[Rfam]
RNA sequence: CAAGACGAUCCAGUUUGCGGUUUUUUUCACCAACAUAUUGGUCAUUAACCUUGAAAAUUUGAGGGAUGACCUCAUCUAAUCUCCAGUAGCAUUUUGACCUGUAUGGGAGGAAUCAUGCGUCUGGAUCGUCUUAC
Numbered sequence: 001c002a003a004g005a006c007g008a009u010c011c012a013g014u015u016u017g018c019g020g021u022u023u024u025u026u027u028c029a030c031c032a033a034c035a036u037a038u039u040g041g042u043c044a045u046u047a048a049c050c051u052u053g054a055a056a057a058u059u060u061g062a063g064g065g066a067u068g069a070c071c072u073c074a075u076c077u078a079a080u081c082u083c084c085a086g087u088a089g090c091a092u093u094u095u096g097a098c099c100u101g102u103a104u105g106g107g108a109g110g111a112a113u114c115a116u117g118c119g120u121c122u123g124g125a126u127c128g129u130c131u132u133a134c
Stems, first nucleotide, its partner, number of pairs: 002132011016119004020113002022040001027037001029036001049064006065076004080110005086104003
About this RNA: The family of this 134-nucleotide sequence from Paramixta manurensis is "Yersinia sRNA 155(RyfD)". Rfam describes the family as follows. The sRNA was identified by and is confirmed to have a stable secondary structure by using genome-wide structure probing at different temperatures. It is annotated as a small RNA. The literature on the family includes a 2016 paper in Proc Natl Acad Sci U S A by Righetti et al., "Temperature-responsive in vitro RNA structurome of Yersinia pseudotuberculosis".